[Rfam]
RNA sequence: GGUCAUGAGCGCCAGCGCCAAGCCCCGGCUCGCUGGCCGGCAACCCCCGCCCGCGGUGGGGUGCCCCGGGUGAUGACCUGGCCGCUCCCCGUCCGGGGCAGCGGCAAGCGCGGGCC
Numbered sequence: 001g002g003u004c005a006u007g008a009g010c011g012c013c014a015g016c017g018c019c020a021a022g023c024c025c026c027g028g029c030u031c032g033c034u035g036g037c038c039g040g041c042a043a044c045c046c047c048c049g050c051c052c053g054c055g056g057u058g059g060g061g062u063g064c065c066c067c068g069g070g071u072g073a074u075g076a077c078c079u080g081g082c083c084g085c086u087c088c089c090c091g092u093c094c095g096g097g098g099c100a101g102c103g104g105c106a107a108g109c110g111c112g113g114g115c116c
Stems, first nucleotide, its partner, number of pairs: 001078004009038001011037006021030002039065003044061003047056002081105006087098004
Dot-bracket structure: ((((....(.((((((....((......)).)))))))(((..(((((......))..))).))).........))))..((((((((((....)))).))))))...........
RNA: SAM (S-adenosyl methionine) riboswitch aptamer